[Rfam]
RNA sequence: UGGAGUGAACAGGUUAUUCGCGGUGCAGUGUGAUAGUGGAAUAUACUGCAUCACGUGUAACCUCCCUACACGAA
Numbered sequence: 001u002g003g004a005g006u007g008a009a010c011a012g013g014u015u016a017u018u019c020g021c022g023g024u025g026c027a028g029u030g031u032g033a034u035a036g037u038g039g040a041a042u043a044u045a046c047u048g049c050a051u052c053a054c055g056u057g058u059a060a061c062c063u064c065c066c067u068a069c070a071c072g073a074a
Base pairs, nucleotide, nucleotide: 003071005069006068007067011063012062013061014060015059016058017057019055020054023051024050025049026048027047

Rfam assigns this 74-nucleotide RNA from Ornithorhynchus anatinus to the family "mir-1421 microRNA precursor family". The base pairs follow the family's consensus structure, which was predicted with RNAalifold. Its family is annotated with RISC complex and miRNA-mediated post-transcriptional gene silencing in the Gene Ontology.